[Rfam]
RNA: Twister_sister_ribozyme
RNA sequence: GAAACCCGCUAGGCCGACAGCCUCACCGCUGCCGCUGGUGCAAGCCCAGCCGCCCCAGACCGGGGCGGGCGCUCAUGGGUAACAG
Numbered sequence: 001g002a003a004a005c006c007c008g009c010u011a012g013g014c015c016g017a018c019a020g021c022c023u024c025a026c027c028g029c030u031g032c033c034g035c036u037g038g039u040g041c042a043a044g045c046c047c048a049g050c051c052g053c054c055c056c057a058g059a060c061c062g063g064g065g066c067g068g069g070c071g072c073u074c075a076u077g078g079g080u081a082a083c084a085g
Stems, first nucleotide, its partner, number of pairs: 004080004013070003018031003034050004051067006